[Rfam]
RNA sequence: UAAGGAGAAAUAAACUUUUUCUUGUUCUAUCAAGAGGGUUUAUUGCUCCUUAAUUUUC
Numbered sequence: 001u002a003a004g005g006a007g008a009a010a011u012a013a014a015c016u017u018u019u020u021c022u023u024g025u026u027c028u029a030u031c032a033a034g035a036g037g038g039u040u041u042a043u044u045g046c047u048c049c050u051u052a053a054u055u056u057u058c
Base pairs, nucleotide, nucleotide: 001052002051003050004049005048006047007046009044010043011042012041013040014039015038016037017036020035021034022033023032024031
RNA: Plastid-psbA-2 3UTR RNA
Organism: Scrophularia buergeriana